Shown here is an 85-nucleotide sequence from bacterium HR30, a member of the family "ZMP/ZTP riboswitch aptamer (pfl RNA motif)".

Nucleotides: 085
Base pairs, nucleotide, nucleotide: 004055005054006053007052009050010049011048012047015044016043017073018072019071020070021069027040028039029038030037062080063079064078065077066076
Number, partner (000 for none) and nucleotide at each position: 001000c002000u003000u004055g005054g006053u007052c008000u009050g010049c011048a012047c013000g014000a015044c016043u017073g018072g019071c020070g021069u022000u023000c024000a025000a026000c027040g028039u029038g030037g031000a032000a033000u034000u035000g036000a037030c038029c039028a040027c041000g042000g043016g044015g045000g046000a047012g048011u049010g050009c051000u052007g053006a054005c055004c056000u057000u058000c059000a060000g061000u062080g063079g064078g065077c066076c067000g068000u069021a070020c071019g072018c073017c074000u075000g076066g077065g078064c079063c080062u081000c082000u083000g084000a085000a
Pairs were carried over by alignment from the consensus structure, which is taken from published work.